About this RNA
Shown here is a 350-nucleotide sequence from Pseudoprimorskyibacter insulae, a member of the family "Alphaproteobacteria transfer-messenger RNA". Pairs were carried over by alignment from the consensus structure, which is taken from published work.
RNA sequence: UGACUUGUAAAGCGGAACAACGGCUUCUAUAUAUCGGGUGUUCCCUCGGGAACUAUGGGCAUAAACGCGCGUAGAAUAAGCGGAUCGGACCCGGGGGCGGUACCCGGCGGCUCCACCAAACAUCCUUCGUUUGAGGAUCAUGGGGCCGAAAUAGGAUCGACGAACGUGUAAAAACGUAGCUUUGCUUCGGUGAGAUACCACCGUUAUCGGUUCAAAAAGUACAAUUGCAAACGACAAUCGUGCUCCGGUUGCUCUGGCUGCGUAAGCAGUUCGAGGAAUCGAAAUCUAAGUCCUUGCGCUUAGCAGCGUAAGGCGGGGUUCGCAGGUACCUGGCAACAGAAACCUGCACU
Numbered sequence: 001u002g003a004c005u006u007g008u009a010a011a012g013c014g015g016a017a018c019a020a021c022g023g024c025u026u027c028u029a030u031a032u033a034u035c036g037g038g039u040g041u042u043c044c045c046u047c048g049g050g051a052a053c054u055a056u057g058g059g060c061a062u063a064a065a066c067g068c069g070c071g072u073a074g075a076a077u078a079a080g081c082g083g084a085u086c087g088g089a090c091c092c093g094g095g096g097g098c099g100g101u102a103c104c105c106g107g108c109g110g111c112u113c114c115a116c117c118a119a120a121c122a123u124c125c126u127u128c129g130u131u132u133g134a135g136g137a138u139c140a141u142g143g144g145g146c147c148g149a150a151a152u153a154g155g156a157u158c159g160a161c162g163a164a165c166g167u168g169u170a171a172a173a174a175c176g177u178a179g180c181u182u183u184g185c186u187u188c189g190g191u192g193a194g195a196u197a198c199c200a201c202c203g204u205u206a207u208c209g210g211u212u213c214a215a216a217a218a219g220u221a222c223a224a225u226u227g228c229a230a231a232c233g234a235c236a237a238u239c240g241u242g243c244u245c246c247g248g249u250u251g252c253u254c255u256g257g258c259u260g261c262g263u264a265a266g267c268a269g270u271u272c273g274a275g276g277a278a279u280c281g282a283a284a285u286c287u288a289a290g291u292c293c294u295u296g297c298g299c300u301u302a303g304c305a306g307c308g309u310a311a312g313g314c315g316g317g318g319u320u321c322g323c324a325g326g327u328a329c330c331u332g333g334c335a336a337c338a339g340a341a342a343c344c345u346g347c348a349c350u
Stems, first nucleotide, its partner, number of pairs: 040053005057187005067180002069177004081166002085163003091107005108148007188203004194213002197211003316331004322347006
It scores 319 bits against the family's covariance model. For this family Rfam cites "Phylogenetic analysis of tmRNA secondary structure" (Williams and Bartel, RNA, 1996). From the family's description: Bacterial tmRNA, also known as 10Sa RNA or SsrA, is named for its dual tRNA and mRNA-like properties.